[Rfam]
Nucleotides: 192
Base pairs, nucleotide, nucleotide: 006187008185009184010183011182016084017083018082020080021079023078024077025076033069034068035067038063039062088119089118090117091116092114093113094112095111096110098108099107120146121145123143124142125141126140127139128138129137130136148177149176150175151174152173153172154171155170156169
Number, partner (000 for none) and nucleotide at each position: 001000g002000a003000g004000g005000u006187g007000a008185g009184u010183a011182g012000a013000g014000g015000c016084g017083c018082g019000u020080u021079g022000c023078a024077u025076c026000a027000u028000c029000a030000g031000u032000a033069c034068c035067g036000c037000g038063g039062g040000g041000a042000g043000a044000g045000c046000c047000c048000g049000a050000a051000a052000g053000c054000u055000c056000u057000g058000g059000g060000a061000a062039c063038c064000g065000a066000u067035u068034g069033g070000g071000a072000a073000a074000g075000g076025g077024a078023u079021c080020a081000u082018c083017g084016c085000c086000g087000a088119a089118g090117c091116u092114u093113g094112g095111g096110c097000c098108g099107c100000u101000u102000u103000u104000c105000g106000g107099g108098u109000u110096g111095c112094u113093c114092a115000c116091g117090g118089c119088u120146g121145g122000g123143u124142c125141u126140g127139c128138a129137u130136c131000g132000a133000a134000c135000a136130g137129g138128u139127g140126c141125a142124g143123g144000a145121c146120u147000g148177u149176c150175a151174c152173a153172c154171a155170g156169g157000a158000g159000g160000g161000g162000c163000c164000c165000a166000c167000c168000a169156c170155c171154u172153g173152u174151g175150u176149g177148g178000a179000g180000g181000a182011c183010u184009a185008u186000c187006u188000c189000a190000c191000a192000u

Notes
Rfam assigns this 192-nucleotide sequence from Tumebacillus algifaecis to the family "Lysine riboswitch aptamer". Lineage of the source: Bacteria > Bacillati > Caryophanales > Alicyclobacillaceae > Tumebacillus. The match comes from Rfam's covariance-model search (82 bits).